Fluoride riboswitch aptamer (crcB RNA motif): a 69-nucleotide RNA sequence from Desertifilum tharense.
A search with the family's covariance model found it, with a score of 54 bits.
The family has 289 seed sequences and 2,293 matches in Rfam 15.1.
RNA sequence: AUUUGUAAAGGUAAUGGAGCUUACCUUAAACCGCCAAGCUUUAGCUCGGCUGAUGGCUCCUACUAUUCU
Numbered sequence: 001a002u003u004u005g006u007a008a009a010g011g012u013a014a015u016g017g018a019g020c021u022u023a024c025c026u027u028a029a030a031c032c033g034c035c036a037a038g039c040u041u042u043a044g045c046u047c048g049g050c051u052g053a054u055g056g057c058u059c060c061u062a063c064u065a066u067u068c069u
Stems, first nucleotide, its partner, number of pairs: 010025004016060006033050003